[Rfam]
RNA sequence: UUGCCUUAAACUAAUGAGUAAGGAAAACAAAACAAGCAGUGGGAGCUGCUUGCAGCACUCAUUCUGAUGUGCACGAAUUUUUGAAGGGGUUAUAGGUUGUCCUUGAGCAGCUGUUGCUUACAAAGCUACUUAACUGAUUAAAAUUUAUUUU
Numbered sequence: 001u002u003g004c005c006u007u008a009a010a011c012u013a014a015u016g017a018g019u020a021a022g023g024a025a026a027a028c029a030a031a032a033c034a035a036g037c038a039g040u041g042g043g044a045g046c047u048g049c050u051u052g053c054a055g056c057a058c059u060c061a062u063u064c065u066g067a068u069g070u071g072c073a074c075g076a077a078u079u080u081u082u083g084a085a086g087g088g089g090u091u092a093u094a095g096g097u098u099g100u101c102c103u104u105g106a107g108c109a110g111c112u113g114u115u116g117c118u119u120a121c122a123a124a125g126c127u128a129c130u131u132a133a134c135u136g137a138u139u140a141a142a143a144u145u146u147a148u149u150u151u
Stems, first nucleotide, its partner, number of pairs: 004023005033052007055072004087151003093147006103136001105131003109127004